[Rfam]
RNA sequence: UCUUUAGACCUGUGCAAUGGUGCCCUAAGGUACUGUGUCAGGGUAGGAAUACAGCAGCACGCUUUUAUGUACUAUGUGCCGCAGGUAUCUGAGGAGGA
Numbered sequence: 001u002c003u004u005u006a007g008a009c010c011u012g013u014g015c016a017a018u019g020g021u022g023c024c025c026u027a028a029g030g031u032a033c034u035g036u037g038u039c040a041g042g043g044u045a046g047g048a049a050u051a052c053a054g055c056a057g058c059a060c061g062c063u064u065u066u067a068u069g070u071a072c073u074a075u076g077u078g079c080c081g082c083a084g085g086u087a088u089c090u091g092a093g094g095a096g097g098a
Base pairs, nucleotide, nucleotide: 004092005091006090007089008088009085010084011083012082013081014080015076017075018074019073020072021071022070024069026067027066028065029064030063034061035060036059037058038057043052044051045050

The record is a 98-nucleotide RNA from Sulfurimonas denitrificans, which matches "Bacterial small signal recognition particle RNA" in Rfam.
Rfam classes the family as a non-coding RNA gene.
The signal recognition particle (SRP) is a universally conserved ribonucleoprotein involved in the co-translational targeting of proteins to membranes.